A member of the RNA family "S. aureus tsr24 small RNA" from Staphylococcus aureus, 352 nucleotides long. NCBI's taxonomy places the organism under Bacteria, Bacilli, Caryophanales, Staphylococcaceae, Staphylococcus aureus.

RNA sequence: AGGUCAUAGGAUAAAACAAAUUGAGAAUUUGUCGCUAUUUGUAAAUUGUAUCCUGGCUUAAGUUGGCCAAAGUGUCUUAUUUUUUUAAAGUAUUUAAAAGUAAAAUUACAUGUUAAUACGUAGUAUUAAUGGCGAGACUCCUGAGGGAGCAGUGCCAGUCGAAGACAGGGGCCCCAACACAGAAGCUGACAUAUAGUCAGCUUACAACAAUGUGCCGGUUGGGGUGGCUGAGACGGCACCCUAGGAAGGGACCCGUCAUCAAAAAUUCUAUUUAUAGAAUUUUACAGUAAUGUGCCAGAUGGGCAUAGCGAAGCCAUUCAAUACGAAGUAUUGUAUAAAUAGAGAACAGCAG
Numbered sequence: 001a002g003g004u005c006a007u008a009g010g011a012u013a014a015a016a017c018a019a020a021u022u023g024a025g026a027a028u029u030u031g032u033c034g035c036u037a038u039u040u041g042u043a044a045a046u047u048g049u050a051u052c053c054u055g056g057c058u059u060a061a062g063u064u065g066g067c068c069a070a071a072g073u074g075u076c077u078u079a080u081u082u083u084u085u086u087a088a089a090g091u092a093u094u095u096a097a098a099a100g101u102a103a104a105a106u107u108a109c110a111u112g113u114u115a116a117u118a119c120g121u122a123g124u125a126u127u128a129a130u131g132g133c134g135a136g137a138c139u140c141c142u143g144a145g146g147g148a149g150c151a152g153u154g155c156c157a158g159u160c161g162a163a164g165a166c167a168g169g170g171g172c173c174c175c176a177a178c179a180c181a182g183a184a185g186c187u188g189a190c191a192u193a194u195a196g197u198c199a200g201c202u203u204a205c206a207a208c209a210a211u212g213u214g215c216c217g218g219u220u221g222g223g224g225u226g227g228c229u230g231a232g233a234c235g236g237c238a239c240c241c242u243a244g245g246a247a248g249g250g251a252c253c254c255g256u257c258a259u260c261a262a263a264a265a266u267u268c269u270a271u272u273u274a275u276a277g278a279a280u281u282u283u284a285c286a287g288u289a290a291u292g293u294g295c296c297a298g299a300u301g302g303g304c305a306u307a308g309c310g311a312a313g314c315c316a317u318u319c320a321a322u323a324c325g326a327a328g329u330a331u332u333g334u335a336u337a338a339a340u341a342g343a344g345a346a347c348a349g350c351a352g
Stems, first nucleotide, its partner, number of pairs: 004338001006336003010332002026047007048075004056068001059065002091330005100109003110121004123324005128318006139305001140303003144300001146296002149293002152291002156287001158285002